[Rfam]
RNA sequence: UGAGGAUUGAUUCGUCUCCUCGGAGGGAACGGCUGACAUACUGCAGGAACACAGUAACUUAAUUGCCGAACAAAAUCAGGUUGCUGGGGGCGAAGC
Numbered sequence: 001u002g003a004g005g006a007u008u009g010a011u012u013c014g015u016c017u018c019c020u021c022g023g024a025g026g027g028a029a030c031g032g033c034u035g036a037c038a039u040a041c042u043g044c045a046g047g048a049a050c051a052c053a054g055u056a057a058c059u060u061a062a063u064u065g066c067c068g069a070a071c072a073a074a075a076u077c078a079g080g081u082u083g084c085u086g087g088g089g090g091c092g093a094a095g096c
Base pairs, nucleotide, nucleotide: 001022002021003020004019005018006017052086053085054084055083056082057081058080059079

The record is a 96-nucleotide sequence, which matches "RAGATH-28 RNA" in Rfam.
By type it is a small RNA.